[Rfam]
RNA sequence: UUCUAUGAUGACUUUUUGUCGACCGGGCGGACAUACCAAGUAUCGAAGGCGAAGUGGUCCUAAUAAACUGUUUCUCUGUGUACAAAUUUUUAAGGGAGACAGGAAGGACAACAUCGCUUCGCCCUCGAGAAGUGAUGAUUGGUCACAAGAUAGCUGAUU
Numbered sequence: 001u002u003c004u005a006u007g008a009u010g011a012c013u014u015u016u017u018g019u020c021g022a023c024c025g026g027g028c029g030g031a032c033a034u035a036c037c038a039a040g041u042a043u044c045g046a047a048g049g050c051g052a053a054g055u056g057g058u059c060c061u062a063a064u065a066a067a068c069u070g071u072u073u074c075u076c077u078g079u080g081u082a083c084a085a086a087u088u089u090u091u092a093a094g095g096g097a098g099a100c101a102g103g104a105a106g107g108a109c110a111a112c113a114u115c116g117c118u119u120c121g122c123c124c125u126c127g128a129g130a131a132g133u134g135a136u137g138a139u140u141g142g143u144c145a146c147a148a149g150a151u152a153g154c155u156g157a158u159u
Base pairs, nucleotide, nucleotide: 007154009152010151016148017147018146019145021144022143023142024141025140034137035136037134038133041131043128044127045126048123049122050121051120052119053118054117055116056115057109058108059107060106061105068102069101070100071099072098073097074096075095076094077093
Small nucleolar RNA snR70: a 159-nucleotide RNA sequence from Torulaspora globosa. A reference for the family is Filipowicz et al. (1999), "Structure and biogenesis of small nucleolar RNAs acting as guides for ribosomal RNA modification", Acta Biochim Pol. Its family is annotated with nucleolus and RNA processing in the Gene Ontology.